[Rfam]
RNA sequence: ACCACCCACGCGGGAGAGACCGCCCAGCAGCACCCGGGCGGCGCCGAAGGGGCAGAUUCCUCCCCGGAACCUCUCAGGCAAAAGGACCUCGUGGGCAGG
Numbered sequence: 001a002c003c004a005c006c007c008a009c010g011c012g013g014g015a016g017a018g019a020c021c022g023c024c025c026a027g028c029a030g031c032a033c034c035c036g037g038g039c040g041g042c043g044c045c046g047a048a049g050g051g052g053c054a055g056a057u058u059c060c061u062c063c064c065c066g067g068a069a070c071c072u073c074u075c076a077g078g079c080a081a082a083a084g085g086a087c088c089u090c091g092u093g094g095g096c097a098g099g
Stems, first nucleotide, its partner, number of pairs: 006094005012088002020041006043079003046075002050073003
Overview:
Glycine riboswitch aptamer: a 99-nucleotide RNA sequence from Micromonospora rhizosphaerae. It scores 61 bits against the family's covariance model. For this family Rfam cites "A glycine-dependent riboswitch that uses cooperative binding to control gene expression" (Mandal et al., Science, 2004). Its family is annotated with glycine biosynthetic process in the Gene Ontology. About the family: This family represents the bacterial glycine riboswitch. Glycine riboswitches usually consist of two metabolite-binding aptamers domains with similar structures in tandem.